About this RNA: Shown here is a 96-nucleotide sequence, a member of the family "Bacterial small signal recognition particle RNA". The family's consensus secondary structure is taken from published work. It scores 62 bits against the family's covariance model.
[Rfam]
RNA sequence: GGAGGCUGGCGGCGGACGAACCCCUCGCCAACCGGGUCAGGACCGGAAGGUAGCAGCCCUAACGAAUCCGGUUCGGGUCGCGGCUCAGUCUCCCAC
Numbered sequence: 001g002g003a004g005g006c007u008g009g010c011g012g013c014g015g016a017c018g019a020a021c022c023c024c025u026c027g028c029c030a031a032c033c034g035g036g037u038c039a040g041g042a043c044c045g046g047a048a049g050g051u052a053g054c055a056g057c058c059c060u061a062a063c064g065a066a067u068c069c070g071g072u073u074c075g076g077g078u079c080g081c082g083g084c085u086c087a088g089u090c091u092c093c094c095a096c
Stems, first nucleotide, its partner, number of pairs: 004090005009084002012081003017075006025065003034059004042051003